Background
Shown here is a 75-nucleotide RNA sequence from Crocodylus porosus, a member of the family "Mammalian CPEB3 ribozyme". Rfam links the family to the GO term RNA nuclease activity. The family's consensus secondary structure is taken from published work. From the family's description: The mammalian CPEB3 ribozyme is a self cleaving RNA located in the second intron of the CPEB3 gene which belongs to a family of genes regulating messenger RNA polyadenylation. Rfam 15.1 lists 5,706 matches to the family in 197 species.

RNA sequence: CAGGGAUAUAAGAACCGUAGCAGAAGUGCUAACGUCAUGGCCCUGUCAGAUUCUAGUCAAUUUACAAAUUCUGCU
Dot-bracket structure: ...........[..[[..((((((((((.......)))]].].....(((((......))))).....)))))))